[Rfam]
RNA sequence: AGAAAAGUAACCGCCGCCCCGCGCAGGGGCGACGCUAAUAGACCGUUACGAUCACAGGCAAUUCACAUCAAAACGCAAGCGAACCGCCC
Numbered sequence: 001a002g003a004a005a006a007g008u009a010a011c012c013g014c015c016g017c018c019c020c021g022c023g024c025a026g027g028g029g030c031g032a033c034g035c036u037a038a039u040a041g042a043c044c045g046u047u048a049c050g051a052u053c054a055c056a057g058g059c060a061a062u063u064c065a066c067a068u069c070a071a072a073a074c075g076c077a078a079g080c081g082a083a084c085c086g087c088c089c
Base pairs, nucleotide, nucleotide: 011079013076014075015031016030017029018028019027020026058069061068062067
The record is an 89-nucleotide RNA sequence from Burkholderia seminalis, which matches "Burkholderia sRNA Bp1_Cand684_SIPHT" in Rfam. By type it is a small RNA. The family's consensus secondary structure was predicted with RNAalifold. It scores 57 bits against the family's covariance model. Rfam 15.1 lists 176 matches to the family in 44 species. For this family Rfam cites "Computational discovery and RT-PCR validation of novel Burkholderia conserved and Burkholderia pseudomallei unique sRNAs" (Khoo et al., BMC Genomics, 2012).